[Rfam]
RNA: mir-973 microRNA precursor family
RNA sequence: UGACUUUUCGUGCUUGGCGAUUGAAGGUGGAUUUGUGAUUUUUAAGCAAUUAAAUCUGUUCAAUCGUCAACACUAAAAGUUG
Numbered sequence: 001u002g003a004c005u006u007u008u009c010g011u012g013c014u015u016g017g018c019g020a021u022u023g024a025a026g027g028u029g030g031a032u033u034u035g036u037g038a039u040u041u042u043u044a045a046g047c048a049a050u051u052a053a054a055u056c057u058g059u060u061c062a063a064u065c066g067u068c069a070a071c072a073c074u075a076a077a078a079g080u081u082g
Base pairs, nucleotide, nucleotide: 002081003080004079005078006077007076008075010073011072012071014070015069016068017067019065022062023061024060025059029057030056031055032054033053034052